Background:
A member of the RNA family "small nucleolar RNA snoR117" from Spinacia oleracea, 72 nucleotides long. Rfam classes the family as a C/D-box small nucleolar RNA. The base pairs follow the family's consensus structure, which was predicted with RNAalifold. Its family is annotated with nucleolus and RNA processing in the Gene Ontology. For this family Rfam cites "Mining small RNA sequencing data: a new approach to identify small nucleolar RNAs in Arabidopsis" (Chen and Wu, Nucleic Acids Res, 2009).

[Rfam]
RNA sequence: GGCCUAGGAUUUACAUAAUUGUCCGUACCAUCUGAAAUUUUGAUGAGUUCUUUAACAAAUUUUCUGAGGCCA
Numbered sequence: 001g002g003c004c005u006a007g008g009a010u011u012u013a014c015a016u017a018a019u020u021g022u023c024c025g026u027a028c029c030a031u032c033u034g035a036a037a038u039u040u041u042g043a044u045g046a047g048u049u050c051u052u053u054a055a056c057a058a059a060u061u062u063u064c065u066g067a068g069g070c071c072a
Stems, first nucleotide, its partner, number of pairs: 001071004